[Rfam]
RNA sequence: AAGCUAAUCUGGCAGAUGCCAAAGACAGCAGGAGCGAAAAACGCUUAAUAUCCUGCCGAGGUAGAUGCGCCAAUAGUUCCCCUUGUUGCCUAAUUCAUUUUAGGCGGUUGGGAGGGCGGGUCAUCAAACCUCGGAGUCUUAUCCGAGGUCUUUUUGAUGAGAGG
Numbered sequence: 001a002a003g004c005u006a007a008u009c010u011g012g013c014a015g016a017u018g019c020c021a022a023a024g025a026c027a028g029c030a031g032g033a034g035c036g037a038a039a040a041a042c043g044c045u046u047a048a049u050a051u052c053c054u055g056c057c058g059a060g061g062u063a064g065a066u067g068c069g070c071c072a073a074u075a076g077u078u079c080c081c082c083u084u085g086u087u088g089c090c091u092a093a094u095u096c097a098u099u100u101u102a103g104g105c106g107g108u109u110g111g112g113a114g115g116g117c118g119g120g121u122c123a124u125c126a127a128a129c130c131u132c133g134g135a136g137u138c139u140u141a142u143c144c145g146a147g148g149u150c151u152u153u154u155u156g157a158u159g160a161g162a163g164g
Stems, first nucleotide, its partner, number of pairs: 028056006034044003128149008
Record summary
The family of this 164-nucleotide RNA from Euhalothece natronophila is "Ribosomal protein L10 leader". The base pairs follow the family's consensus structure, which was predicted with CMfinder. Its family is annotated with regulation of gene expression in the Gene Ontology. For this family Rfam cites "Diverse mechanisms for regulating ribosomal protein synthesis in Escherichia coli" (Zengel and Lindahl, Prog Nucleic Acid Res Mol Biol, 1994). Rfam's curators write: This family is a putative r-protein leader autoregulatory structure found in B. subtilis and other low-GC Gram-positive bacteria. It is located in the 5' untranslated regions of mRNAs encoding ribosomal proteins L10 and L12 (rplJ-rplL). A Rho-independent transcription terminator structure that is probably involved in regulation is included at the 3' end. Taxonomically the source falls in Euhalothece natronophila (Bacteria, Cyanophyceae, Chroococcales, Halothecacae).